[Rfam]
RNA: Acido-Lenti-1 RNA
RNA sequence: CCCAGUGUUGAAACACUGGGCUAUUAUCUGCUGUCCCUCCGGGACG
Number, nucleotide and partner (000 for none) at each position: 001c020002c019003c018004a017005g016006u015007g014008u013009u000010g000011a000012a000013a008014c007015a006016c005017u004018g003019g002020g001021c000022u000023a000024u000025u000026a000027u000028c000029u000030g000031c000032u000033g045034u044035c043036c042037c041038u000039c000040c000041g037042g036043g035044a034045c033046g000